[Rfam]
RNA sequence: GGUCGAUGAUGACAAAGAAGUUUUCUGAGGGCACAGGGAAAUUCCACCCCAUUGCCCCUUGGCUCCCAGCAAUCUCUAUUCUAUCAUGCCAUAGUAGAGCUGUGAUUGGGGAAGAGAUUGCUGACAGUUUGGGAUUAAUUCAGUUCCAGUUCUCCACAGUAAAGGGAGUUGUGGCACCAAAUGUAAUCCAACAAAUAUGAUGAAGCGGAGCUCGUGGGGAUGGGGUGUCUUCAUUAUCUGUGCGUGAUCAAAGGUUUUCAAGCUGAGACC
Numbered sequence: 001g002g003u004c005g006a007u008g009a010u011g012a013c014a015a016a017g018a019a020g021u022u023u024u025c026u027g028a029g030g031g032c033a034c035a036g037g038g039a040a041a042u043u044c045c046a047c048c049c050c051a052u053u054g055c056c057c058c059u060u061g062g063c064u065c066c067c068a069g070c071a072a073u074c075u076c077u078a079u080u081c082u083a084u085c086a087u088g089c090c091a092u093a094g095u096a097g098a099g100c101u102g103u104g105a106u107u108g109g110g111g112a113a114g115a116g117a118u119u120g121c122u123g124a125c126a127g128u129u130u131g132g133g134a135u136u137a138a139u140u141c142a143g144u145u146c147c148a149g150u151u152c153u154c155c156a157c158a159g160u161a162a163a164g165g166g167a168g169u170u171g172u173g174g175c176a177c178c179a180a181a182u183g184u185a186a187u188c189c190a191a192c193a194a195a196u197a198u199g200a201u202g203a204a205g206c207g208g209a210g211c212u213c214g215u216g217g218g219g220a221u222g223g224g225g226u227g228u229c230u231u232c233a234u235u236a237u238c239u240g241u242g243c244g245u246g247a248u249c250a251a252a253g254g255u256u257u258u259c260a261a262g263c264u265g266a267g268a269c270c
Stems, first nucleotide, its partner, number of pairs: 001270004036249002045227008063210004067123007080109002083106006089099001131189001133188005146174003152168004

The family of this 270-nucleotide RNA is "Small Cajal body specific RNA 6". The family's RNA type in Rfam is small Cajal body RNA. On this family, see Darzacq et al., EMBO J 2002: "Cajal body-specific small nuclear RNAs: a novel class of 2'-O-methylation and pseudouridylation guide RNAs". About the family: U88 is small Cajal body specific RNA (scaRNA). scaRNAs are a novel class of small nuclear RNAs which localise to the Cajal bodies. U88 is found associated with both fibrillarin and Gar1p and co-localises with coilin in Cajal bodies. Rfam links the family to the GO terms nucleolus and RNA processing. The base pairs follow the family's consensus structure, which is taken from published work.